[Rfam]
RNA: Bacterial RNase P class A
Organism: Legionella drancourtii
RNA sequence: AGAGUUGGUUAGACAAUCGCUCUUUGCUUCGGCAAAGGGAGGAAAGUCCGGGCUCCAAAGGGCAGAGUGCCAGGUAACGCCUGGGAGGUGUGAACCUACGGAAAGUGCCACAGAAAAUAUACCGCCUCGUUAGAGGUAAGGGUGAAAUGGUGCGGUAAGAGCGCACCGCGCGACUGGCAACAGUCGUGGCAGGGAAAACCCCACUCGGAGCAAGACCAAAUAGGAAUCCAUGUGACUGCAAAGUCAUGACGUGCGGCCCGUACGGGAUUCGGGUAGGUUGCUUGAGGCAUGCGGUGACGCAUGUCCCAGAUGAAUGAUUGUCCGCGACAGAACCCGGCUUAUCGACCGACUCUUUUU
Numbered sequence: 001a002g003a004g005u006u007g008g009u010u011a012g013a014c015a016a017u018c019g020c021u022c023u024u025u026g027c028u029u030c031g032g033c034a035a036a037g038g039g040a041g042g043a044a045a046g047u048c049c050g051g052g053c054u055c056c057a058a059a060g061g062g063c064a065g066a067g068u069g070c071c072a073g074g075u076a077a078c079g080c081c082u083g084g085g086a087g088g089u090g091u092g093a094a095c096c097u098a099c100g101g102a103a104a105g106u107g108c109c110a111c112a113g114a115a116a117a118u119a120u121a122c123c124g125c126c127u128c129g130u131u132a133g134a135g136g137u138a139a140g141g142g143u144g145a146a147a148u149g150g151u152g153c154g155g156u157a158a159g160a161g162c163g164c165a166c167c168g169c170g171c172g173a174c175u176g177g178c179a180a181c182a183g184u185c186g187u188g189g190c191a192g193g194g195a196a197a198a199c200c201c202c203a204c205u206c207g208g209a210g211c212a213a214g215a216c217c218a219a220a221u222a223g224g225a226a227u228c229c230a231u232g233u234g235a236c237u238g239c240a241a242a243g244u245c246a247u248g249a250c251g252u253g254c255g256g257c258c259c260g261u262a263c264g265g266g267a268u269u270c271g272g273g274u275a276g277g278u279u280g281c282u283u284g285a286g287g288c289a290u291g292c293g294g295u296g297a298c299g300c301a302u303g304u305c306c307c308a309g310a311u312g313a314a315u316g317a318u319u320g321u322c323c324g325c326g327a328c329a330g331a332a333c334c335c336g337g338c339u340u341a342u343c344g345a346c347c348g349a350c351u352c353u354u355u356u357u
Stems, first nucleotide, its partner, number of pairs: 001353010011342001012322007020039008044340003048337005053210004060259004065206005070084005085099001086097004100201002105199002108194002122141002124137005149167006168190001169188008214279004224270006250264005286305008